Notes: Shown here is a 77-nucleotide RNA from Lepisosteus oculatus, a member of the family "mir-460 microRNA precursor family". Lineage of the source: Eukaryota > Chordata > Actinopteri > Neopterygii > Lepisosteus.
RNA sequence: CUUCACAGUUUCCUCAUUGUACAUGCUGUGUGCCUUCUCGGUACACGCACAGCGCAUACAAUGUGGACAUUGUGGGG
Numbered sequence: 001c002u003u004c005a006c007a008g009u010u011u012c013c014u015c016a017u018u019g020u021a022c023a024u025g026c027u028g029u030g031u032g033c034c035u036u037c038u039c040g041g042u043a044c045a046c047g048c049a050c051a052g053c054g055c056a057u058a059c060a061a062u063g064u065g066g067a068c069a070u071u072g073u074g075g076g077g
Stems, first nucleotide, its partner, number of pairs: 012066002015063007024054001026052006
The family has 21 seed sequences and 1,029 matches in Rfam 15.1. Gene Ontology terms of the family: miRNA-mediated post-transcriptional gene silencing and RISC complex.